[Rfam]
Shown here is a 183-nucleotide RNA from Anopheles gambiae, a member of the family "drz-agam-2-2 ribozyme". Gene Ontology term of the family: catalytic activity. A reference for the family is Webb et al. (2009), "Widespread occurrence of self-cleaving ribozymes", Science.

RNA sequence: AUCAUGGGAACUGACCAAUAAAUCGUGGGAAACCCUGUAAUACAGGCUCUCCCAUCCAACUCCUAUUCCGACACGUCCUCGUCGUGCAGAGUGGUAACAUGUGUCACCACAUAUCCAAGCUUGGGUACACGGGCUUGACCCAACCCCUUGGGCGGAUGGUGGCACAUGGCGAACCAGGAGGGG
Number, nucleotide and partner (000 for none) at each position: 001a000002u000003c000004a055005u054006g053007g052008g051009a050010a000011c046012u045013g000014a000015c000016c000017a000018a000019u000020a000021a000022a000023u000024c000025g000026u000027g000028g000029g000030a000031a000032a000033c000034c000035c000036u000037g000038u000039a000040a000041u000042a000043c000044a000045g012046g011047c000048u000049c000050u009051c008052c007053c006054a005055u004056c000057c000058a000059a000060c000061u183062c182063c181064u180065a000066u179067u178068c000069c177070g000071a000072c000073a085074c084075g083076u000077c094078c093079u000080c000081g000082u000083c075084g074085u073086g000087c000088a000089g000090a000091g000092u000093g078094g077095u000096a000097a000098c168099a167100u166101g165102u164103g163104u000105c161106a160107c159108c158109a000110c000111a000112u000113a157114u156115c155116c154117a000118a000119g000120c000121u143122u142123g141124g140125g139126u138127a000128c000129a000130c000131g000132g000133g000134c000135u000136u000137g000138a126139c125140c124141c123142a122143a121144c000145c152146c151147c000148u000149u000150g000151g146152g145153c000154g116155g115156a114157u113158g108159g107160u106161g105162g000163c103164a102165c101166a100167u099168g098169g000170c000171g000172a000173a000174c000175c000176a000177g069178g067179a066180g064181g063182g062183g061